Rfam assigns this 82-nucleotide sequence from Lutibacter oricola to the family "tRNA".

[Rfam]
RNA sequence: GCCUCGAUGGCGGAACUGGUAGACGCGCUGGAUUCAAAAUCCAGUUCUUUCGGGAGUGUGGGUUCGAUUCCCACUCGAGGUA
Numbered sequence: 001g002c003c004u005c006g007a008u009g010g011c012g013g014a015a016c017u018g019g020u021a022g023a024c025g026c027g028c029u030g031g032a033u034u035c036a037a038a039a040u041c042c043a044g045u046u047c048u049u050u051c052g053g054g055a056g057u058g059u060g061g062g063u064u065c066g067a068u069u070c071c072c073a074c075u076c077g078a079g080g081u082a
Base pairs, nucleotide, nucleotide: 001081002080003079004078005077006076007075010026011025012024028044029043030042031041032040058074059073060072061071062070
Transfer RNA (tRNA) molecules are approximately 80 nucleotides in length. A search with the family's covariance model found it, with a score of 60 bits. The family's RNA type in Rfam is transfer RNA.